Rfam assigns this 476-nucleotide part of an RNA from Tetrahymena pyriformis to the family "Eukaryotic large subunit ribosomal RNA".

RNA sequence: UAGAACAAUGUAGAUAAGGGAAGUCGGCAAAUUGGAUCCGUAACUUCGGGAUAAGGAUUGGCUCUGAGGAUCGGGUAUAAAGGCCAUUAGAUGAUAUCCAAGCUUGUUUGUUAGUGUGGCAACAUGCUGAUAGACUUGCGACCGAAGAAUUCUUGUGGUAGACCUCGGUCGUCUUUAUACAAUUAACGAUCAACUCAGAACUGAAGCGGACAAAGGUAAUCCGACUGUUUAAUAAAAACAAAGCAUUGUGACGGCCUCAACAGGUGAUGACACAAUGUGAUUUCUGCCCAGUGCUCUGAAUGUCAAAGUGACGCAAUUCAACCAAGCGCGGGUAAACGGCGGGAGUAACUAUGACUCUCUUAAGGUAGCCAAAUGCCUCGUCAUCUAAUUAGUGACGCGCAUGAAUGGAUUAAUGAGAUUACCACUGUCCCUAUCUACUAUCUAGCGAACCCACAGCUAAGGGAACGGGCUUAGAA
Numbered sequence: 001u002a003g004a005a006c007a008a009u010g011u012a013g014a015u016a017a018g019g020g021a022a023g024u025c026g027g028c029a030a031a032u033u034g035g036a037u038c039c040g041u042a043a044c045u046u047c048g049g050g051a052u053a054a055g056g057a058u059u060g061g062c063u064c065u066g067a068g069g070a071u072c073g074g075g076u077a078u079a080a081a082g083g084c085c086a087u088u089a090g091a092u093g094a095u096a097u098c099c100a101a102g103c104u105u106g107u108u109u110g111u112u113a114g115u116g117u118g119g120c121a122a123c124a125u126g127c128u129g130a131u132a133g134a135c136u137u138g139c140g141a142c143c144g145a146a147g148a149a150u151u152c153u154u155g156u157g158g159u160a161g162a163c164c165u166c167g168g169u170c171g172u173c174u175u176u177a178u179a180c181a182a183u184u185a186a187c188g189a190u191c192a193a194c195u196c197a198g199a200a201c202u203g204a205a206g207c208g209g210a211c212a213a214a215g216g217u218a219a220u221c222c223g224a225c226u227g228u229u230u231a232a233u234a235a236a237a238a239c240a241a242a243g244c245a246u247u248g249u250g251a252c253g254g255c256c257u258c259a260a261c262a263g264g265u266g267a268u269g270a271c272a273c274a275a276u277g278u279g280a281u282u283u284c285u286g287c288c289c290a291g292u293g294c295u296c297u298g299a300a301u302g303u304c305a306a307a308g309u310g311a312c313g314c315a316a317u318u319c320a321a322c323c324a325a326g327c328g329c330g331g332g333u334a335a336a337c338g339g340c341g342g343g344a345g346u347a348a349c350u351a352u353g354a355c356u357c358u359c360u361u362a363a364g365g366u367a368g369c370c371a372a373a374u375g376c377c378u379c380g381u382c383a384u385c386u387a388a389u390u391a392g393u394g395a396c397g398c399g400c401a402u403g404a405a406u407g408g409a410u411u412a413a414u415g416a417g418a419u420u421a422c423c424a425c426u427g428u429c430c431c432u433a434u435c436u437a438c439u440a441u442c443u444a445g446c447g448a449a450c451c452c453a454c455a456g457c458u459a460a461g462g463g464a465a466c467g468g469g470c471u472u473a474g475a476a
Stems, first nucleotide, its partner, number of pairs: 001444004010438007018430003035059005044049001060202002063199006069191005075180009084158003089153003097146001099144001102139002106135013203207001215423007222415002226240003243278008254265004282409003286340003291337002293333004298329001301328003309320003341359006360364001380396005457474005